[Rfam]
RNA sequence: GACCGUGUUUGAAAGAUAAGGAUACUCAUCAAAUAAUUCAGAAAACCCGGACUUACUUCCUUUGCCAAUGGCGGGCCACAUUCGAAAGAUAGCCGUCAGGCCGGUGGAUUACAAAAGCAAGGAGGAGUCCAAACCUUAUUCAAUAAGGAGUUUUCAUCAUCUUCGAAUGCGGUCCUUCUU
Numbered sequence: 001g002a003c004c005g006u007g008u009u010u011g012a013a014a015g016a017u018a019a020g021g022a023u024a025c026u027c028a029u030c031a032a033a034u035a036a037u038u039c040a041g042a043a044a045a046c047c048c049g050g051a052c053u054u055a056c057u058u059c060c061u062u063u064g065c066c067a068a069u070g071g072c073g074g075g076c077c078a079c080a081u082u083c084g085a086a087a088g089a090u091a092g093c094c095g096u097c098a099g100g101c102c103g104g105u106g107g108a109u110u111a112c113a114a115a116a117g118c119a120a121g122g123a124g125g126a127g128u129c130c131a132a133a134c135c136u137u138a139u140u141c142a143a144u145a146a147g148g149a150g151u152u153u154u155c156a157u158c159a160u161c162u163u164c165g166a167a168u169g170c171g172g173u174c175c176u177u178c179u180u
Stems, first nucleotide, its partner, number of pairs: 056124002059122002062120004069113002076107004081089002092101003
Rfam assigns this 180-nucleotide sequence from Prevotella sp. P5-92 to the family "Bacteroidales-1 6S-Bacteroidales RNA suggested". A search with the family's covariance model found it, with a score of 94 bits. Bacteroidales-1 was first reported in a comparative genomics-based approach of genome and metagenome sequences from Weinberg et al. 2010 In a high-resolution transcriptome map study of Bacteroides thetaiotaomicron, Ryan et al. 2020 report this sRNA as 6S RNA homologue of Bacteroides, in the study they obtain evidence of small product RNAs (pRNAs) related to 6S function. Pairs were carried over by alignment from the consensus structure, which is taken from published work. Lineage of the source: Bacteria > Bacteroidota > Bacteroidales > Prevotellaceae > Prevotella. It is annotated as a small RNA.